[Rfam]
Source information: Rfam assigns this 147-nucleotide RNA from Solanum tuberosum to the family "small nucleolar RNA snoR135". The match comes from Rfam's covariance-model search (132 bits). The source organism's lineage runs through Eukaryota, Streptophytina, Pentapetalae, Solanales and Solanum.
RNA sequence: CAAGCAAGGAUUGUGUGUAUCGGCUUUGUGCUAUUAUUAAUGCGCUUUGCACGAAAGUGUUCUCUGCAAAAUUAUUUUUUGGGGAAGAUGGGCAAUUGUGUUUCAUCUCUUUACUGGAAAUUUUCAACAAUCAUUUUCCCCACAUUU
Numbered sequence: 001c002a003a004g005c006a007a008g009g010a011u012u013g014u015g016u017g018u019a020u021c022g023g024c025u026u027u028g029u030g031c032u033a034u035u036a037u038u039a040a041u042g043c044g045c046u047u048u049g050c051a052c053g054a055a056a057g058u059g060u061u062c063u064c065u066g067c068a069a070a071a072u073u074a075u076u077u078u079u080u081g082g083g084g085a086a087g088a089u090g091g092g093c094a095a096u097u098g099u100g101u102u103u104c105a106u107c108u109c110u111u112u113a114c115u116g117g118a119a120a121u122u123u124u125c126a127a128c129a130a131u132c133a134u135u136u137u138c139c140c141c142a143c144a145u146u147u
Stems, first nucleotide, its partner, number of pairs: 004067003008063003015045006081141011096127003